[Rfam]
RNA sequence: GAAUUCAGAUAGCCCAGUGGUUACUUCAGUGUUUCACAAGCUCAUUGUGUCUCACCCUGCAAGAGGUUCGAUCUCACGGGCACCUCUGGACCAUUUU
Numbered sequence: 001g002a003a004u005u006c007a008g009a010u011a012g013c014c015c016a017g018u019g020g021u022u023a024c025u026u027c028a029g030u031g032u033u034u035c036a037c038a039a040g041c042u043c044a045u046u047g048u049g050u051c052u053c054a055c056c057c058u059g060c061a062a063g064a065g066g067u068u069c070g071a072u073c074u075c076a077c078g079g080g081c082a083c084c085u086c087u088g089g090a091c092c093a094u095u096u097u
Stems, first nucleotide, its partner, number of pairs: 004090004012081004017077004026071002029068001
A member of the RNA family "Vault RNA" from Fulmarus glacialis, 97 nucleotides long. A reference for the family is Stadler et al. (2009), "Evolution of Vault RNAs", Mol Biol Evol. The match comes from Rfam's covariance-model search (36 bits). The source organism's lineage runs through Eukaryota, Chordata, Dipnotetrapodomorpha, Coelurosauria and Fulmarus.